RNA: NiCo (Nickel/Cobalt) riboswitch aptamer
Organism: Sphaerochaeta pleomorpha
RNA sequence: ACAGUACAAACUGAGCAGGCGAUGGGCCUUCUGGCCUGUGGGGCUGGGUCCGUAAGGACAACAGGUGAAUAGAAACAUCUGUGGGACGGUU
Numbered sequence: 001a002c003a004g005u006a007c008a009a010a011c012u013g014a015g016c017a018g019g020c021g022a023u024g025g026g027c028c029u030u031c032u033g034g035c036c037u038g039u040g041g042g043g044c045u046g047g048g049u050c051c052g053u054a055a056g057g058a059c060a061a062c063a064g065g066u067g068a069a070u071a072g073a074a075a076c077a078u079c080u081g082u083g084g085g086a087c088g089g090u091u
Base pairs, nucleotide, nucleotide: 010090011089012088013087016085018045019044020043022039023038024037025036026035027034048059049058050057051056061082062081063080064079065078066077